Gammaproteobacterial sRNA STnc100: a 185-nucleotide RNA sequence from Cronobacter sakazakii. Pairs were carried over by alignment from the consensus structure, which was predicted with CMfinder. Lineage of the source: Bacteria > Enterobacterales > Enterobacteriaceae > Cronobacter > Cronobacter sakazakii. The match comes from Rfam's covariance-model search (88 bits).
[Rfam]
RNA sequence: GCGCGAUAGACAUCCAACAAUUUUAAUGGUGAAUCCCCCUGUGCGGCGGGGCAUUACUGGCUAAGUCCAAGGGUGAGCAGCAUGCGAGACUUUGUUGCCAGUCAAAGUCUCACCGGGAAGCACCCGGCACUAUUAUUUAUGAGGUUAUUUUAAGGCCAGCUUGUCAGAGCUGGCUUUUUUUUGCC
Numbered sequence: 001g002c003g004c005g006a007u008a009g010a011c012a013u014c015c016a017a018c019a020a021u022u023u024u025a026a027u028g029g030u031g032a033a034u035c036c037c038c039c040u041g042u043g044c045g046g047c048g049g050g051g052c053a054u055u056a057c058u059g060g061c062u063a064a065g066u067c068c069a070a071g072g073g074u075g076a077g078c079a080g081c082a083u084g085c086g087a088g089a090c091u092u093u094g095u096u097g098c099c100a101g102u103c104a105a106a107g108u109c110u111c112a113c114c115g116g117g118a119a120g121c122a123c124c125c126g127g128c129a130c131u132a133u134u135a136u137u138u139a140u141g142a143g144g145u146u147a148u149u150u151u152a153a154g155g156c157c158a159g160c161u162u163g164u165c166a167g168a169g170c171u172g173g174c175u176u177u178u179u180u181u182u183g184c185c
Stems, first nucleotide, its partner, number of pairs: 012136001024135008036051004060074003077085003086111004092105003113127005144185001146183002153176009